[Rfam]
RNA sequence: CCGUCCGUCCUCUGGAACGCUCUCCCACCAGAAAGCCUGUGCCAGCUACCCUGGCCGCGUGCGCCUUCCGUGGGAAGCCGCAAAGCCGACAGCCGUCGCACUCCAGGGAGCUCAUUCAUG
Numbered sequence: 001c002c003g004u005c006c007g008u009c010c011u012c013u014g015g016a017a018c019g020c021u022c023u024c025c026c027a028c029c030a031g032a033a034a035g036c037c038u039g040u041g042c043c044a045g046c047u048a049c050c051c052u053g054g055c056c057g058c059g060u061g062c063g064c065c066u067u068c069c070g071u072g073g074g075a076a077g078c079c080g081c082a083a084a085g086c087c088g089a090c091a092g093c094c095g096u097c098g099c100a101c102u103c104c105a106g107g108g109a110g111c112u113c114a115u116u117c118a119u120g
Stems, first nucleotide, its partner, number of pairs: 060082004065077004085099002088097003
Dot-bracket structure: ...........................................................((((.((((.....)))).))))..((.(((....))))).....................
Description: The family of this 120-nucleotide RNA from Streptomyces longispororuber is "Streptomyces-metH RNA". The source organism's lineage runs through Bacteria, Bacillati, Actinomycetes, Kitasatosporales and Streptomyces. Pairs were carried over by alignment from the consensus structure, which is taken from published work.